[Rfam]
RNA: Small nucleolar RNA SNORA81
Organism: Canis lupus
RNA sequence: ACCUUCUUUUGUAUAAGCAUUGCGCUAAAAUCGCAGAAACCGGGAUCAUACCUUGGUUUCUGUAAUGAUGUUAGCAGACUAACAUAAGAAGAAAAGUAACUGCAUUAGAGUCUAAAGACUGGAGUGAACCUCUCUCUCUUAGUGUCCAGUGUCCUUUGUCUUAAGGCAUGAUGCACUAUGU
Numbered sequence: 001a002c003c004u005u006c007u008u009u010u011g012u013a014u015a016a017g018c019a020u021u022g023c024g025c026u027a028a029a030a031u032c033g034c035a036g037a038a039a040c041c042g043g044g045a046u047c048a049u050a051c052c053u054u055g056g057u058u059u060c061u062g063u064a065a066u067g068a069u070g071u072u073a074g075c076a077g078a079c080u081a082a083c084a085u086a087a088g089a090a091g092a093a094a095a096g097u098a099a100c101u102g103c104a105u106u107a108g109a110g111u112c113u114a115a116a117g118a119c120u121g122g123a124g125u126g127a128a129c130c131u132c133u134c135u136c137u138c139u140u141a142g143u144g145u146c147c148a149g150u151g152u153c154c155u156u157u158g159u160c161u162u163a164a165g166g167c168a169u170g171a172u173g174c175a176c177u178a179u180g181u
Base pairs, nucleotide, nucleotide: 021078024075025074026073027072030069031068032067033066036060037059039057040056041055042054043053044052046050101175102174103173104172105171106170107169121152123150125148126147128145